RNA sequence: AAAAACAUUAUAAACAUCCGUCGUAUAAUGUUGGGAAUAUGGCCCAGGAGUAUCUACCAGAGCACCGUAAAUGGCUCUGACUACGAGGAGGAGGUAAGUUGCC
Number, nucleotide and partner (000 for none) at each position: 001a000002a000003a000004a000005a000006c000007a000008u000009u000010a000011u000012a000013a000014a000015c000016a000017u000018c000019c088020g000021u086022c085023g084024u083025a082026u000027a000028a000029u049030g000031u047032u046033g045034g044035g043036a000037a000038u000039a000040u000041g000042g000043c035044c034045c033046a032047g031048g000049a029050g000051u000052a000053u000054c000055u000056a000057c000058c079059a078060g077061a076062g075063c074064a072065c000066c000067g000068u000069a000070a000071a000072u064073g000074g063075c062076u061077c060078u059079g058080a000081c000082u025083a024084c023085g022086a021087g000088g019089a000090g000091g000092a000093g000094g000095u000096a000097a000098g000099u000100u000101g000102c000103c000